Small nucleolar RNA R160: an 83-nucleotide sequence from Genlisea aurea. Rfam describes the family as follows. snoR160 is a C/D box small nucleolar RNA, which acts as a methylation guide for 25S ribosomal RNA in plants. snoR160 has been alternatively named snoZ270 in rice.

[Rfam]
RNA sequence: GGCAAAAUGAUGAGAAUUUGGUUUCUGAAUUCCGGUGUGGAGAUUCUUUAUCCAGUAAUGGUCUUCAAAGUUCUCUGAUUGCC
Dot-bracket structure: (((((.........................................................................)))))
The base pairs follow the family's consensus structure.